[Rfam]
RNA sequence: AAUGCUGUGAUGAGGCAAGCACCAUAUGGUGUUUUAGGGCAGUGGAAGUAUCCGUGAGCCCAUUUAUCUAAUGACUUCUCCUUCCACUGAGCAUC
Numbered sequence: 001a002a003u004g005c006u007g008u009g010a011u012g013a014g015g016c017a018a019g020c021a022c023c024a025u026a027u028g029g030u031g032u033u034u035u036a037g038g039g040c041a042g043u044g045g046a047a048g049u050a051u052c053c054g055u056g057a058g059c060c061c062a063u064u065u066a067u068c069u070a071a072u073g074a075c076u077u078c079u080c081c082u083u084c085c086a087c088u089g090a091g092c093a094u095c
Stems, first nucleotide, its partner, number of pairs: 002094004
Annotation
Shown here is a 95-nucleotide RNA sequence from Coffea canephora, a member of the family "Small nucleolar RNA Z152/R70/R12/". Taxonomically the source falls in Coffea (Eukaryota, Gunneridae, Pentapetalae, Coffeeae). The literature on the family includes a 2001 paper in J Mol Biol by Barneche et al., "Identification of 66 box C/D snoRNAs in Arabidopsis thaliana: extensive gene duplications generated multiple isoforms predicting new ribosomal RNA 2'-O-methylation sites". Rfam 15.1 lists 604 matches to the family in 220 species.